[Rfam]
Overview:
This 189-nucleotide RNA sequence from Fontibacillus panacisegetis belongs to the Rfam family "FMN riboswitch aptamer (RFN element)". Gene Ontology term of the family: FMN binding.
RNA sequence: GUUAUCCUUCGGGGUUGGGUGAAAUUCCCUACCGACGGUGAUGGCGAGCCUGAGCCAUGAAGCAAUUAAGUAAUUCUGCAGCUCAAGGCAAGCAUAAGUCCGUGACCCGUAUGCGGCAUAUAUUAAGCAUAUGGCUGAGCCGGUGUGAUUCCGGGACCGACAGUAAAGUCUGGAUGGGAGAAGGAGAGC
Numbered sequence: 001g002u003u004a005u006c007c008u009u010c011g012g013g014g015u016u017g018g019g020u021g022a023a024a025u026u027c028c029c030u031a032c033c034g035a036c037g038g039u040g041a042u043g044g045c046g047a048g049c050c051u052g053a054g055c056c057a058u059g060a061a062g063c064a065a066u067u068a069a070g071u072a073a074u075u076c077u078g079c080a081g082c083u084c085a086a087g088g089c090a091a092g093c094a095u096a097a098g099u100c101c102g103u104g105a106c107c108c109g110u111a112u113g114c115g116g117c118a119u120a121u122a123u124u125a126a127g128c129a130u131a132u133g134g135c136u137g138a139g140c141c142g143g144u145g146u147g148a149u150u151c152c153g154g155g156a157c158c159g160a161c162a163g164u165a166a167a168g169u170c171u172g173g174a175u176g177g178g179a180g181a182a183g184g185a186g187a188g189c
Stems, first nucleotide, its partner, number of pairs: 003187001005185006017029003031169002033159002035103004107134006140154004161172003